[Rfam]
RNA sequence: AGCACGCACGGUGACUGGCGUACGGGGAAACGACCCCGAGGAAGCCGUGCGCGGGCUUUCGCACGAGGUGUCGCCCCGCCUGGGCACCCCGG
Numbered sequence: 001a002g003c004a005c006g007c008a009c010g011g012u013g014a015c016u017g018g019c020g021u022a023c024g025g026g027g028a029a030a031c032g033a034c035c036c037c038g039a040g041g042a043a044g045c046c047g048u049g050c051g052c053g054g055g056c057u058u059u060c061g062c063a064c065g066a067g068g069u070g071u072c073g074c075c076c077c078g079c080c081u082g083g084g085c086a087c088c089c090c091g092g
Stems, first nucleotide, its partner, number of pairs: 003053001005051008015041002017080004024037004068087005
ZMP/ZTP riboswitch aptamer (pfl RNA motif): a 92-nucleotide RNA from Streptomyces pristinaespiralis. The source organism's lineage runs through Bacteria, Actinomycetota, Kitasatosporales, Streptomyces and Streptomyces pristinaespiralis. It scores 45 bits against the family's covariance model. For this family Rfam cites "Co-crystal structure of the Fusobacterium ulcerans ZTP riboswitch using an X-ray free-electron laser" (Jones et al., Acta Crystallogr F Struct Biol Commun, 2019). Rfam links the family to the GO terms regulation of purine nucleotide biosynthetic process and one-carbon metabolic process.